[Rfam]
RNA sequence: AGGCAAUAAUGAUGAAAAACUUCGAUUAUCUUGUGUGCACACACGCACAUAUGAUGAUUCAACACCUCCUACUCAUUCUGA
Numbered sequence: 001a002g003g004c005a006a007u008a009a010u011g012a013u014g015a016a017a018a019a020c021u022u023c024g025a026u027u028a029u030c031u032u033g034u035g036u037g038c039a040c041a042c043a044c045g046c047a048c049a050u051a052u053g054a055u056g057a058u059u060c061a062a063c064a065c066c067u068c069c070u071a072c073u074c075a076u077u078c079u080g081a
Stems, first nucleotide, its partner, number of pairs: 006076002009073001029057002
Dot-bracket structure: .....((.(...................((.........................))...............).)).....